A member of the RNA family "Xanthine riboswitch aptamer (NMT1 RNA)" from Ideonella sp. B508-1, 54 nucleotides long. The organism belongs to Ideonella, within Bacteria. A reference for the family is Yu and Breaker (2020), "A bacterial riboswitch class senses xanthine and uric acid to regulate genes associated with purine oxidation", RNA. Rfam's curators put it in the seed alignment.
[Rfam]
RNA sequence: GUCAAGAGUAGAAGCGUUCAGCGGCCGCCCGGCCGCCCGGAAAUUGCUCUGAAA
Numbered sequence: 001g002u003c004a005a006g007a008g009u010a011g012a013a014g015c016g017u018u019c020a021g022c023g024g025c026c027g028c029c030c031g032g033c034c035g036c037c038c039g040g041a042a043a044u045u046g047c048u049c050u051g052a053a054a
Stems, first nucleotide, its partner, number of pairs: 005050006015039001018041002021036006